Rfam assigns this 102-nucleotide sequence from Clostridium tepidiprofundi to the family "c-di-GMP-I riboswitch aptamer". NCBI's taxonomy places the organism under Bacteria, Bacillati, Eubacteriales, Clostridium, Clostridium tepidiprofundi.
RNA sequence: UUUCUUAAAAGGCAAACUUAUUGAAAAAUAAGGACGCAAAGCCAAGGACCUAAUGAGAACAAGUAUUGGUAGACAAGUUCUUUAUGGUAGCCGGUUGCAGAA
Numbered sequence: 001u002u003u004c005u006u007a008a009a010a011g012g013c014a015a016a017c018u019u020a021u022u023g024a025a026a027a028a029u030a031a032g033g034a035c036g037c038a039a040a041g042c043c044a045a046g047g048a049c050c051u052a053a054u055g056a057g058a059a060c061a062a063g064u065a066u067u068g069g070u071a072g073a074c075a076a077g078u079u080c081u082u083u084a085u086g087g088u089a090g091c092c093g094g095u096u097g098c099a100g101a102a
Stems, first nucleotide, its partner, number of pairs: 012037002017032006040096004046092002048088003055082006